[Rfam]
RNA sequence: UGUUUCGAUUGGUACAAAUCCAAUAUUGAAAUUUAAGAUGACAGAAAAUUCCCCAUUGGUAGCAAAUGCUUAUCCAUUAAGCGGGGAAAAUCCUAU
Numbered sequence: 001u002g003u004u005u006c007g008a009u010u011g012g013u014a015c016a017a018a019u020c021c022a023a024u025a026u027u028g029a030a031a032u033u034u035a036a037g038a039u040g041a042c043a044g045a046a047a048a049u050u051c052c053c054c055a056u057u058g059g060u061a062g063c064a065a066a067u068g069c070u071u072a073u074c075c076a077u078u079a080a081g082c083g084g085g086g087a088a089a090a091u092c093c094u095a096u
Base pairs, nucleotide, nucleotide: 009023010022011021012020051086052085053084054083055077056076058074059073060072061071062070
This 96-nucleotide sequence from Gossypium australe belongs to the Rfam family "Plastid-rps12 3UTR RNA".
On this family, see Richter et al., Plant Commun 2023: "Retrograde signaling in plants: A critical review focusing on the GUN pathway and beyond".
Rfam's curators write: Plastid rpl20 is a non-coding RNA (ncRNA) recognised in plastids. It was found in the three prime untranslated region (3UTR) of rps12 gene, its 3UTR location sugest a role in transcript maduration.
Rfam classes the family as a cis-regulatory element.